[Rfam]
RNA sequence: GAAUUCCUUACAGCAAUUUAAUCAUAAUCAAAUUACUCACUUGAAAAAAACCUUGGAUUCUG
Numbered sequence: 001g002a003a004u005u006c007c008u009u010a011c012a013g014c015a016a017u018u019u020a021a022u023c024a025u026a027a028u029c030a031a032a033u034u035a036c037u038c039a040c041u042u043g044a045a046a047a048a049a050a051c052c053u054u055g056g057a058u059u060c061u062g
Base pairs, nucleotide, nucleotide: 001060002059003058004057005056006055
Shown here is a 62-nucleotide sequence from Dictyostelium purpureum, a member of the family "Class I RNA from Dictyostelium". By type it is a non-coding RNA gene. The source organism's lineage runs through Eukaryota, Evosea, Dictyosteliales, Dictyosteliaceae and Dictyostelium. Rfam describes the family as follows. Dictyostelium Class I RNA was first reported for Aspegren et al. 2004 in Dictyostelium discoideum. Sucgang et al. 2011 identify putative homologs of Class I RNA in D. discoideum and D. purpureum. Avesson et al. 2011 report that Class I RNA present a down regulation during the development of social amoeba Dictyostelium discoideum, they also found that deletion of one of the Class I RNAs, DdR-21, results in aberrant development. Kjellin et al. 2020 report an extended number of expressed Class I RNA genes in class Dictyostelia, in their analysis they remark that Class I RNA appear to be unique to dictyostelid social amoebas, and they hypothesise that Class I RNAs were involved in evolution of multicellularity in Dictyostelia. The family's consensus secondary structure is taken from published work. The literature on the family includes a 2004 paper in Nucleic Acids Res by Aspegren et al., "Novel non-coding RNAs in Dictyostelium discoideum and their expression during development".